Background
Shown here is a 78-nucleotide sequence from Roseiarcus fermentans, a member of the family "Group II catalytic intron D1-D4-1". It scores 48 bits against the family's covariance model.
RNA sequence: UGAGCGCGUCGCAAGGCGCGUGACCGCGGCGCGGAAGUCAGCAGAGGGCGUAGUAGGCCUGCGUAUCGGCUGAAGGCC
Numbered sequence: 001u002g003a004g005c006g007c008g009u010c011g012c013a014a015g016g017c018g019c020g021u022g023a024c025c026g027c028g029g030c031g032c033g034g035a036a037g038u039c040a041g042c043a044g045a046g047g048g049c050g051u052a053g054u055a056g057g058c059c060u061g062c063g064u065a066u067c068g069g070c071u072g073a074a075g076g077c078c
Base pairs, nucleotide, nucleotide: 004021005020006019007018008017009016010015038045039044047078048077049076056071057070058069059068061066
The pairing is the family consensus, mapped onto this sequence.